S4-Bacteroidia ribosomal protein leader: a 32-nucleotide RNA sequence. Pairs were carried over by alignment from the consensus structure, which is taken from published work. Rfam classes the family as a cis-regulatory leader. The literature on the family includes a 2020 paper in BMC Microbiol by Eckert and Weinberg, "Discovery of 20 novel ribosomal leader candidates in bacteria and archaea".
RNA sequence: GAUUGCACGUACCCUCUCUGUAAUCGCGGCUG
Numbered sequence: 001g002a003u004u005g006c007a008c009g010u011a012c013c014c015u016c017u018c019u020g021u022a023a024u025c026g027c028g029g030c031u032g
Stems, first nucleotide, its partner, number of pairs: 001025007